[Rfam]
RNA: mir-2060 microRNA precursor family
RNA sequence: GUGUGUGUGUGGAUGGUGUUCAGCACCAGGGACUGGUAUGUUUGUGUGUGGAUGGUGUUCAGAACUAAGGACAGUCUUUUGUGUAU
Numbered sequence: 001g002u003g004u005g006u007g008u009g010u011g012g013a014u015g016g017u018g019u020u021c022a023g024c025a026c027c028a029g030g031g032a033c034u035g036g037u038a039u040g041u042u043u044g045u046g047u048g049u050g051g052a053u054g055g056u057g058u059u060c061a062g063a064a065c066u067a068a069g070g071a072c073a074g075u076c077u078u079u080u081g082u083g084u085a086u
Stems, first nucleotide, its partner, number of pairs: 001076001004073003014067004019062002022059007030047001032045002038043001